[Rfam]
RNA sequence: AAGCACGUCUUACCUGACAGUGCUGGGCUGUACACAGGUGUUCUAACACUGUCUGGUAAUGAUGUCCCC
Numbered sequence: 001a002a003g004c005a006c007g008u009c010u011u012a013c014c015u016g017a018c019a020g021u022g023c024u025g026g027g028c029u030g031u032a033c034a035c036a037g038g039u040g041u042u043c044u045a046a047c048a049c050u051g052u053c054u055g056g057u058a059a060u061g062a063u064g065u066c067c068c069c
Stems, first nucleotide, its partner, number of pairs: 003067001005065005010059005016053007024045004